This 53-nucleotide RNA sequence from Henriciella mobilis belongs to the Rfam family "serC leader". Pairs were carried over by alignment from the consensus structure. On this family, see Corbino et al., Genome Biol 2005: "Evidence for a second class of S-adenosylmethionine riboswitches and other regulatory RNA motifs in alpha-proteobacteria". The family's RNA type in Rfam is cis-regulatory leader. This family is a putative regulatory RNA structure that is found upstream of the serC-serA operon in some alpha-proteobacteria. The final stem of the structure overlaps the ribosome binding site of the serC reading frame.
RNA sequence: CCGCGGGCCAGCCCUCCCCAACGAGGGCCAGCCUAUCUGUAAGGAUAGGAGUA
Numbered sequence: 001c002c003g004c005g006g007g008c009c010a011g012c013c014c015u016c017c018c019c020a021a022c023g024a025g026g027g028c029c030a031g032c033c034u035a036u037c038u039g040u041a042a043g044g045a046u047a048g049g050a051g052u053a
Stems, first nucleotide, its partner, number of pairs: 011028006033048006